[Rfam]
RNA sequence: UGCGGGAUAAGGCGUUUAUGUCGCAUCCUGCAUGGAUUGCCUGAUGCGACGCUGGCGCGUCUUAUCAGGCC
Number, nucleotide and partner (000 for none) at each position: 001u000002g031003c030004g029005g028006g027007a026008u025009a000010a000011g022012g021013c020014g019015u000016u000017u000018a000019u014020g013021u012022c011023g000024c000025a008026u007027c006028c005029u004030g003031c002032a000033u000034g000035g000036a000037u000038u000039g070040c069041c068042u067043g066044a065045u064046g063047c000048g061049a060050c059051g058052c057053u000054g000055g000056c000057g052058c051059g050060u049061c048062u000063u046064a045065u044066c043067a042068g041069g040070c039071c000
This 71-nucleotide sequence from Escherichia coli belongs to the Rfam family "Nucleoid-associated noncoding RNA 4 (CssrE)". Its family is annotated with bacterial nucleoid, protein binding and bacterial nucleoid DNA packaging in the Gene Ontology. By type it is a small RNA. Rfam describes the family as follows. In E. coli small RNA transcribed from repeated extragenic palindromic element (REP325) called nucleoid-associated ncRNA 4 (nRNA4) collaborates HU protein in condensing the DNA. The secondary structure but not the sequence of the RNA is important in nucleoid condensation. Also identified in Shigella as CssrE. The base pairs follow the family's consensus structure, which is taken from published work. A search with the family's covariance model found it, with a score of 72 bits.